[Rfam]
RNA sequence: CGUUAGGAGGUUACCUCUGUCGUUACCCACUUCAUGUGGAUACGGGAAUGUAGCUAUUGA
Numbered sequence: 001c002g003u004u005a006g007g008a009g010g011u012u013a014c015c016u017c018u019g020u021c022g023u024u025a026c027c028c029a030c031u032u033c034a035u036g037u038g039g040a041u042a043c044g045g046g047a048a049u050g051u052a053g054c055u056a057u058u059g060a
Stems, first nucleotide, its partner, number of pairs: 009055006020045004027039003